[Rfam]
RNA sequence: GCGAGCAACUCUGGAGAGACCGGAACCGACCGGCGCCGAAGGGGCAUGGGACCGCAGGACGCGGCCCAAAACUCUCAGGCAAAAGGACAGAGGGGCGCCC
Numbered sequence: 001g002c003g004a005g006c007a008a009c010u011c012u013g014g015a016g017a018g019a020c021c022g023g024a025a026c027c028g029a030c031c032g033g034c035g036c037c038g039a040a041g042g043g044g045c046a047u048g049g050g051a052c053c054g055c056a057g058g059a060c061g062c063g064g065c066c067c068a069a070a071a072c073u074c075u076c077a078g079g080c081a082a083a084a085g086g087a088c089a090g091a092g093g094g095g096c097g098c099c100c
Stems, first nucleotide, its partner, number of pairs: 006095001009092005020033004035080003038076002042074003048067002
The record is a 100-nucleotide RNA sequence from Arenimonas metalli, which matches "Glycine riboswitch aptamer" in Rfam.
The base pairs follow the family's consensus structure.